RNA sequence: GUUUAGUUUAGUAAUAUCAGGGUCCAGCAACAAAAACCCCGACUUUUCGGGGUUUUUUGUUAUUUGAGAUUUAUCUACGUGGAUACUCUCAAAUAGUGUGCUAGGUAUUAAAUUGGGCUUUAGGCCCUUUUUUU
Numbered sequence: 001g002u003u004u005a006g007u008u009u010a011g012u013a014a015u016a017u018c019a020g021g022g023u024c025c026a027g028c029a030a031c032a033a034a035a036a037c038c039c040c041g042a043c044u045u046u047u048c049g050g051g052g053u054u055u056u057u058u059g060u061u062a063u064u065u066g067a068g069a070u071u072u073a074u075c076u077a078c079g080u081g082g083a084u085a086c087u088c089u090c091a092a093a094u095a096g097u098g099u100g101c102u103a104g105g106u107a108u109u110a111a112a113u114u115g116g117g118c119u120u121u122a123g124g125c126c127c128u129u130u131u132u133u134u
Stems, first nucleotide, its partner, number of pairs: 033056009115127004
RNA: Gammaprotebacteria rimP leader
Organism: Vibrio sp. qd031